RNA sequence: GUGGCACUCAAACUGUGGGGGCACUUUCUGCUCUCUGGUGAAAGUGCCGCCAUCUUUUGAGUGUUAC
Numbered sequence: 001g002u003g004g005c006a007c008u009c010a011a012a013c014u015g016u017g018g019g020g021g022c023a024c025u026u027u028c029u030g031c032u033c034u035c036u037g038g039u040g041a042a043a044g045u046g047c048c049g050c051c052a053u054c055u056u057u058u059g060a061g062u063g064u065u066a067c
Stems, first nucleotide, its partner, number of pairs: 004064009015053004020048009
The family of this 67-nucleotide RNA from Pongo pygmaeus is "mir-290 microRNA precursor family". Taxonomically the source falls in Pongo (Eukaryota, Dipnotetrapodomorpha, Boreoeutheria, Hominidae).